[Rfam]
RNA sequence: UAACCGUAGCCGAGAGGCUACGCUGAACCGGCAGGAGUCAGCAGAGGCCAUAGUACGUAAGCUGUUGCAACAGCCUACGGAAGGGC
Numbered sequence: 001u002a003a004c005c006g007u008a009g010c011c012g013a014g015a016g017g018c019u020a021c022g023c024u025g026a027a028c029c030g031g032c033a034g035g036a037g038u039c040a041g042c043a044g045a046g047g048c049c050a051u052a053g054u055a056c057g058u059a060a061g062c063u064g065u066u067g068c069a070a071c072a073g074c075c076u077a078c079g080g081a082a083g084g085g086c
Stems, first nucleotide, its partner, number of pairs: 001025002005022007038045002047086003056079003061074004
Record summary
Shown here is an 86-nucleotide RNA from Paenibacillus yonginensis, a member of the family "Group II catalytic intron D1-D4-1". Rfam's curators write: Group II introns are found in rRNA, tRNA and mRNA of organelles in fungi, plants and protists, and also in mRNA in bacteria. The organism belongs to Paenibacillus, within Bacteria. A reference for the family is Bonen and Vogel (2001), "The ins and outs of group II introns", Trends Genet.